[Rfam]
RNA sequence: CCCCGCGGACAGCGCGGGGCCCCUGUUCCGCUUUUGCAACCAAGGGGUCUGCUCGUG
Numbered sequence: 001c002c003c004c005g006c007g008g009a010c011a012g013c014g015c016g017g018g019g020c021c022c023c024u025g026u027u028c029c030g031c032u033u034u035u036g037c038a039a040c041c042a043a044g045g046g047g048u049c050u051g052c053u054c055g056u057g
Stems, first nucleotide, its partner, number of pairs: 001019007
Shown here is a 57-nucleotide RNA sequence from Klebsiella variicola, a member of the family "ClpQY promoter".
The base pairs follow the family's consensus structure.
Rfam classes the family as a cis-regulatory element.